[Rfam]
RNA: S-element
Organism: Cohaesibacter gelatinilyticus
RNA sequence: AGUCAAGUAUUUUUCGCACCGAUUCGGUGAACAGAUUUCUUUUGCCUUUUGAAAGGUGAAAAAAUG
Numbered sequence: 001a002g003u004c005a006a007g008u009a010u011u012u013u014u015c016g017c018a019c020c021g022a023u024u025c026g027g028u029g030a031a032c033a034g035a036u037u038u039c040u041u042u043u044g045c046c047u048u049u050u051g052a053a054a055g056g057u058g059a060a061a062a063a064a065u066g
Base pairs, nucleotide, nucleotide: 010063011062012061013060014059017058018057019056020055023053024052025051026050027049029047032044033043034042035041